[Rfam]
RNA sequence: UUUACCCUGCUUUGUGCGUGGGUUAUCUGGGGUUUUGAGCCAACAUUUUGCAAAACGGGAGUCCGGUUUCACGCAAGGAAAUGUAGACCUUACAUUGUAUAAGGAAACAGGAAACUGCGGAAGGGCACCCACCUGUUGGAGAACAGGUUCAAAAAACCUUAGGUAACAAACACGGCAUGGUGGGGUUUCC
Dot-bracket structure: ...((((((((.(((.(((...........((((.((((((...............(((.((((.......((((.......((...(((((.......)))))..)).......))))...)))).)))...............)))))).)..))).............)))))).))))))))....

Rfam assigns this 190-nucleotide sequence from Desulforamulus reducens to the family "6S / SsrS RNA". The base pairs follow the family's consensus structure, which is taken from published work. Lineage of the source: Bacteria > Bacillati > Bacillota > Desulforamulus > Desulforamulus reducens.